[Rfam]
RNA sequence: CGUUUGCAGGGGCAACCUUGCUGAUGAUUAAACAAAAGUCAGCAGAUGGCAUAGCAGCCAAAUGCCUAGCAUAAUGGUAGGGGACAGAGUGAAGGCC
Numbered sequence: 001c002g003u004u005u006g007c008a009g010g011g012g013c014a015a016c017c018u019u020g021c022u023g024a025u026g027a028u029u030a031a032a033c034a035a036a037a038g039u040c041a042g043c044a045g046a047u048g049g050c051a052u053a054g055c056a057g058c059c060a061a062a063u064g065c066c067u068a069g070c071a072u073a074a075u076g077g078u079a080g081g082g083g084a085c086a087g088a089g090u091g092a093a094g095g096c097c
Base pairs, nucleotide, nucleotide: 001026002025004023006021007020008019009018010017011016038047039046040045048097049096050095057090058089065081066080067079

A member of the RNA family "Group II catalytic intron D1-D4-1" from a Bathymodiolus platifrons methanotrophic gill symbiont, 97 nucleotides long. The literature on the family includes a 2001 paper in Trends Genet by Bonen and Vogel, "The ins and outs of group II introns". Taxonomically the source falls in Gammaproteobacteria (Bacteria, Pseudomonadati, Pseudomonadota).